[Rfam]
This 108-nucleotide RNA belongs to the Rfam family "DUF3800-III RNA". By type it is a small RNA. The base pairs follow the family's consensus structure, which is taken from published work. Rfam's curators put it in the seed alignment.
RNA sequence: UGAACGGUAUCGUAAAACCUGGAUGACUUUGGCUGUUCGGAGAACAGCAUAGCCUUCCUGAAAUGGAUAUGGGACAGAAUGAAAUCAAAGCCCAGGGUGAGCCGCUCC
Numbered sequence: 001u002g003a004a005c006g007g008u009a010u011c012g013u014a015a016a017a018c019c020u021g022g023a024u025g026a027c028u029u030u031g032g033c034u035g036u037u038c039g040g041a042g043a044a045c046a047g048c049a050u051a052g053c054c055u056u057c058c059u060g061a062a063a064u065g066g067a068u069a070u071g072g073g074a075c076a077g078a079a080u081g082a083a084a085u086c087a088a089a090g091c092c093c094a095g096g097g098u099g100a101g102c103c104g105c106u107c108c
Base pairs, nucleotide, nucleotide: 002107003106005104006103007102010100011099012098018096019095020094021093022092027090028089029088034046035045036044037043038042053072054071056067057066
Dot-bracket structure: .((.(((..(((.....(((((....(((....(((((...)))))......((.((........))...))...............))).))))).))).))).)).